[Rfam]
RNA sequence: AGACUUUAACCGCCGAAACUUCAAUAAAAUUUAACUUGAAGUGCGGGGGAUCCGUUGUGCCGCCUAUGGGCUUGCGCGGCACUGGGGUGAAUCGCUUUUUUGGGCGUAGGGAUGUAUCCUUUAUUCCGAAUCCGACAACUAACUCCGCAGGCAGUGAAAAGGAGUGCA
Numbered sequence: 001a002g003a004c005u006u007u008a009a010c011c012g013c014c015g016a017a018a019c020u021u022c023a024a025u026a027a028a029a030u031u032u033a034a035c036u037u038g039a040a041g042u043g044c045g046g047g048g049g050a051u052c053c054g055u056u057g058u059g060c061c062g063c064c065u066a067u068g069g070g071c072u073u074g075c076g077c078g079g080c081a082c083u084g085g086g087g088u089g090a091a092u093c094g095c096u097u098u099u100u101u102g103g104g105c106g107u108a109g110g111g112a113u114g115u116a117u118c119c120u121u122u123a124u125u126c127c128g129a130a131u132c133c134g135a136c137a138a139c140u141a142a143c144u145c146c147g148c149a150g151g152c153a154g155u156g157a158a159a160a161g162g163a164g165u166g167c168a
Stems, first nucleotide, its partner, number of pairs: 012152003018042007043148006053084002085133003093106004109127004
RNA: c-di-AMP riboswitch aptamer (ydaO/yuaA leader)